[Rfam]
RNA sequence: CUACUUCACAAGCGCGCCCGGCGCGCCUAUGUUCGUCGUGUUCCGGCAACGGGACUAUGGCGAUAAACGCGCGCGGAAUAAGCGGUUCGGACCCGGGGGCGGUACCCGGCGGCUCCACCAACACCCGUUCAUUGGCGGGAAUGGGGCCGAAACAGGAUCGACGGACGUGUAAAGGCGUUAUGCUUUCGCUCGGUGGGAUUCGCCGUUAUCGGAUCGAAAAGUACAGUUGCCAAUGACAACCGUGCUCAGGUGGCCGUCGCUGCGUAAUGCAGCGCCCAAACCUACUCUGAAGUCCUGAGGCUUAGCCGCUUCAGGCGGGGCCGCCGGCGCCUGGCAACAGAAGCCGGCACU
Numbered sequence: 001c002u003a004c005u006u007c008a009c010a011a012g013c014g015c016g017c018c019c020g021g022c023g024c025g026c027c028u029a030u031g032u033u034c035g036u037c038g039u040g041u042u043c044c045g046g047c048a049a050c051g052g053g054a055c056u057a058u059g060g061c062g063a064u065a066a067a068c069g070c071g072c073g074c075g076g077a078a079u080a081a082g083c084g085g086u087u088c089g090g091a092c093c094c095g096g097g098g099g100c101g102g103u104a105c106c107c108g109g110c111g112g113c114u115c116c117a118c119c120a121a122c123a124c125c126c127g128u129u130c131a132u133u134g135g136c137g138g139g140a141a142u143g144g145g146g147c148c149g150a151a152a153c154a155g156g157a158u159c160g161a162c163g164g165a166c167g168u169g170u171a172a173a174g175g176c177g178u179u180a181u182g183c184u185u186u187c188g189c190u191c192g193g194u195g196g197g198a199u200u201c202g203c204c205g206u207u208a209u210c211g212g213a214u215c216g217a218a219a220a221g222u223a224c225a226g227u228u229g230c231c232a233a234u235g236a237c238a239a240c241c242g243u244g245c246u247c248a249g250g251u252g253g254c255c256g257u258c259g260c261u262g263c264g265u266a267a268u269g270c271a272g273c274g275c276c277c278a279a280a281c282c283u284a285c286u287c288u289g290a291a292g293u294c295c296u297g298a299g300g301c302u303u304a305g306c307c308g309c310u311u312c313a314g315g316c317g318g319g320g321c322c323g324c325c326g327g328c329g330c331c332u333g334g335c336a337a338c339a340g341a342a343g344c345c346g347g348c349a350c351u
Base pairs, nucleotide, nucleotide: 040055041054042053043052044051059190060189061188062187063186069183070182071178072177073176074175083167084166087164088163089162093109094108095107096106097105110149111148112147113146114145115144116143191205192204193203194202197215198214200212201211318332319331320330321329323348324347325346326345327344328343
Alphaproteobacteria transfer-messenger RNA: a 351-nucleotide RNA from Rubrimonas cliftonensis. A search with the family's covariance model found it, with a score of 271 bits. Pairs were carried over by alignment from the consensus structure, which is taken from published work. Rfam links the family to the GO term RNA catabolic process.